The record is a 102-nucleotide RNA sequence from Nyctereutes procyonoides, which matches "mir-8834 microRNA precursor family" in Rfam.

RNA sequence: GAGAGCCACCAGUAGAGGCGGCCAGCUCUAGAGCCCUGGACUAAGCUCCUGCAGUAGCUAUGGAGCUUGCAGUCUGCAGAAGCCUGGAUGCUCUGGGGGCAG
Numbered sequence: 001g002a003g004a005g006c007c008a009c010c011a012g013u014a015g016a017g018g019c020g021g022c023c024a025g026c027u028c029u030a031g032a033g034c035c036c037u038g039g040a041c042u043a044a045g046c047u048c049c050u051g052c053a054g055u056a057g058c059u060a061u062g063g064a065g066c067u068u069g070c071a072g073u074c075u076g077c078a079g080a081a082g083c084c085u086g087g088a089u090g091c092u093c094u095g096g097g098g099g100c101a102g
Stems, first nucleotide, its partner, number of pairs: 002094005010086003017074003021070002024067007032059001036054003
Lineage of the source: Eukaryota > Deuterostomia > Teleostomi > Laurasiatheria > Nyctereutes.
The family's consensus secondary structure was predicted with RNAalifold.
It scores 40 bits against the family's covariance model.
Rfam 15.1 lists 13,926 matches to the family in 17 species.